This 198-nucleotide sequence from Caenispirillum salinarum belongs to the Rfam family "permuted transfer-messenger RNA". Rfam classes the family as a non-coding RNA gene. Gene Ontology term of the family: RNA catabolic process.

[Rfam]
RNA sequence: GACGCUAAACCCUUCAUGGAAUAAGCGUAGCGGACCCGGGGGCAGUACCCGGCGGCUCCACCAACUUCUCGACGGGGCCGAAACAGGAUCGACGCGCGUGGUAAAGAUGAAGGUUGCGUCCGGCAUGGCUCCACCGUUAUCGGGCCAUACGCAAUAGUUGCCAACGACAACUUUGCUCCGGCUCGCGCCGCCGCGUAA
Dot-bracket structure: (((((........((((........(((.(((...(((((.......)))))(((((((..............)))))))............))))))........)))).....)))))(((..........)))..............................................................